Exoribonuclease-resistant RNA (xrRNA) plant-infecting virus (class 3): a 51-nucleotide RNA from Hubei polero-like virus 2. The source organism's lineage runs through Viruses and Riboviria. Its family is annotated with viral RNA genome replication in the Gene Ontology. The sequence is in the family's curated seed alignment. Rfam's curators write: Exoribonuclease-resistant RNA (xrRNA) plant-infecting virus (class 3) is a ncRNA that was reported in Plant viruses.
RNA sequence: AAAUCAGCCACACAUACACAAGUUGCGAGUAGUGGAGAUUCAGUCUUGUUA
Numbered sequence: 001a002a003a004u005c006a007g008c009c010a011c012a013c014a015u016a017c018a019c020a021a022g023u024u025g026c027g028a029g030u031a032g033u034g035g036a037g038a039u040u041c042a043g044u045c046u047u048g049u050u051a
Base pairs, nucleotide, nucleotide: 001040002039004037008035009034012030013029018049019048020047021046022045